[Rfam]
RNA sequence: UGUGCGGGCCGGGCCCCUCUGGCGCCUUUUUGGGAGGCGUGAUGUCGGACCGCAUCG
Numbered sequence: 001u002g003u004g005c006g007g008g009c010c011g012g013g014c015c016c017c018u019c020u021g022g023c024g025c026c027u028u029u030u031u032g033g034g035a036g037g038c039g040u041g042a043u044g045u046c047g048g049a050c051c052g053c054a055u056c057g
Stems, first nucleotide, its partner, number of pairs: 006051002009048004022040007
This 57-nucleotide RNA sequence from Sphingomonas baiyangensis belongs to the Rfam family "terC RNA".
NCBI's taxonomy places the organism under Bacteria, Pseudomonadota, Sphingomonadales, Sphingomonadaceae, Sphingomonas.
The base pairs follow the family's consensus structure, which is taken from published work.
By type it is a cis-regulatory element.